Description:
This 219-nucleotide RNA belongs to the Rfam family "IS605-orfB-I RNA". It is annotated as a small RNA. The sequence is in the family's curated seed alignment.
RNA sequence: GCUGUAUAAAGAUGUAGCGAACGCAAGACAGUUUCCGCAUCUCCCUUUAUGGCGACAAACUCCUUAGAAGUCUUGGAAACAAUAUCUGUUGUGUGGCUACGGUCGAAACGGAUUGAUUCAGGAUGGAUUAGGUCUGCCGUAUGACCUUGGUUGAAAAACCUAAAGAUAAUCUUCAAACGGGAUAAGGUUCGCUUUGUUCGCUUUUGGAGUUACGGUUUA
Numbered sequence: 001g002c003u004g005u006a007u008a009a010a011g012a013u014g015u016a017g018c019g020a021a022c023g024c025a026a027g028a029c030a031g032u033u034u035c036c037g038c039a040u041c042u043c044c045c046u047u048u049a050u051g052g053c054g055a056c057a058a059a060c061u062c063c064u065u066a067g068a069a070g071u072c073u074u075g076g077a078a079a080c081a082a083u084a085u086c087u088g089u090u091g092u093g094u095g096g097c098u099a100c101g102g103u104c105g106a107a108a109c110g111g112a113u114u115g116a117u118u119c120a121g122g123a124u125g126g127a128u129u130a131g132g133u134c135u136g137c138c139g140u141a142u143g144a145c146c147u148u149g150g151u152u153g154a155a156a157a158a159c160c161u162a163a164a165g166a167u168a169a170u171c172u173u174c175a176a177a178c179g180g181g182a183u184a185a186g187g188u189u190c191g192c193u194u195u196g197u198u199c200g201c202u203u204u205u206g207g208a209g210u211u212a213c214g215g216u217u218u219a
Stems, first nucleotide, its partner, number of pairs: 001053006008046001010042006017036001019034004023029001070124008084113007095104002130147005136216006142166001149160004171209007179201001180199007